Group II catalytic intron D1-D4-3: a 172-nucleotide RNA from Anaeromicropila herbilytica. NCBI's taxonomy places the organism under Bacteria, Bacillati, Bacillota, Clostridia, Anaeromicropila. Group II introns are found in rRNA, tRNA and mRNA of organelles in fungi, plants and protists, and also in mRNA in bacteria.
[Rfam]
RNA sequence: UCCACUGUGAGGUGGAAAUAAGAAGGAAGUGGGAGGCAAACCUUUGGUCUGACGAACAGAAAUCACAUACAAGGCAGUUCAUAAUGGAUAAGGUUGCAUAUCAAUAGUCCUAUACUACUGAAAUGAUUAUGAAUUGUAAAUGUGGAAGAUAGAUGGAGGGAAAGGGUUCGUU
Numbered sequence: 001u002c003c004a005c006u007g008u009g010a011g012g013u014g015g016a017a018a019u020a021a022g023a024a025g026g027a028a029g030u031g032g033g034a035g036g037c038a039a040a041c042c043u044u045u046g047g048u049c050u051g052a053c054g055a056a057c058a059g060a061a062a063u064c065a066c067a068u069a070c071a072a073g074g075c076a077g078u079u080c081a082u083a084a085u086g087g088a089u090a091a092g093g094u095u096g097c098a099u100a101u102c103a104a105u106a107g108u109c110c111u112a113u114a115c116u117a118c119u120g121a122a123a124u125g126a127u128u129a130u131g132a133a134u135u136g137u138a139a140a141u142g143u144g145g146a147a148g149a150u151a152g153a154u155g156g157a158g159g160g161a162a163a164g165g166g167u168u169c170g171u172u
Base pairs, nucleotide, nucleotide: 001016002015003014004013005012006011029172032169033168037164041159042158043157044156045155046154047150048149049148050147063145064144065143066142067141068140074137075136076135078133079132080131081130082129083128084127086110087109088108089107095104
Dot-bracket structure: ((((((....))))))............(..((...(...((((((((((............((((((.....(((.(((((((.((((.....(........)..))))................))))))).)))..)))))).))))...))))))....)...))..)